[Rfam]
RNA: c-di-AMP riboswitch aptamer (ydaO/yuaA leader)
Organism: Alicyclobacillus hesperidum
RNA sequence: UGACAUCAAGGGCCGAAUCCUGCCGCUGGCAGGAACGGGGGAACCAAUUAUUGGGGUGAAUUGCAGGCGAACGCCCAAUUCGUUUGCAUAGGCACCGAGGGUGCCGAAUCCGUCAGCUAACCUCGUAGGCGAAUAAGUGUGUGUUU
Numbered sequence: 001u002g003a004c005a006u007c008a009a010g011g012g013c014c015g016a017a018u019c020c021u022g023c024c025g026c027u028g029g030c031a032g033g034a035a036c037g038g039g040g041g042a043a044c045c046a047a048u049u050a051u052u053g054g055g056g057u058g059a060a061u062u063g064c065a066g067g068c069g070a071a072c073g074c075c076c077a078a079u080u081c082g083u084u085u086g087c088a089u090a091g092g093c094a095c096c097g098a099g100g101g102u103g104c105c106g107a108a109u110c111c112g113u114c115a116g117c118u119a120a121c122c123u124c125g126u127a128g129g130c131g132a133a134u135a136a137g138u139g140u141g142u143g144u145u146u
Stems, first nucleotide, its partner, number of pairs: 012130003018034006035126006045053002054111003062088010091105004